[Rfam]
A member of the RNA family "Small nucleolar RNA SNORA79" from Origma solitaria, 141 nucleotides long. It is annotated as an H/ACA-box small nucleolar RNA. From the family's description: ACA65 (SNORA79) is a member of the H/ACA class of snoRNAs that guide the sites of modification of uridines to pseudouridines. This snoRNA was identified by computational screening and its expression in mouse experimentally verified by Northern blot and primer extension analysis. NCBI's taxonomy places the organism under Eukaryota, Metazoa, Euteleostomi, Neognathae, Origma. Rfam 15.1 lists 944 matches to the family in 375 species.

RNA sequence: CGACCCGCGUUCCUCCCGGCGCCGCCAGCCAAGGGCGCUCGGGGUUUUAGCGGUGUCGAAGAGUAGAGGAGGUUCCUUCUUCACCCGGGGGAGCCAGAGGACGCUUCGGGGCUCCACCGGAUUUUGCGGGGUCCCACAAAU
Numbered sequence: 001c002g003a004c005c006c007g008c009g010u011u012c013c014u015c016c017c018g019g020c021g022c023c024g025c026c027a028g029c030c031a032a033g034g035g036c037g038c039u040c041g042g043g044g045u046u047u048u049a050g051c052g053g054u055g056u057c058g059a060a061g062a063g064u065a066g067a068g069g070a071g072g073u074u075c076c077u078u079c080u081u082c083a084c085c086c087g088g089g090g091g092a093g094c095c096a097g098a099g100g101a102c103g104c105u106u107c108g109g110g111g112c113u114c115c116a117c118c119g120g121a122u123u124u125u126g127c128g129g130g131g132u133c134c135c136a137c138a139a140a141u
Stems, first nucleotide, its partner, number of pairs: 001058004005053004014044005020037004071133006085120004090115005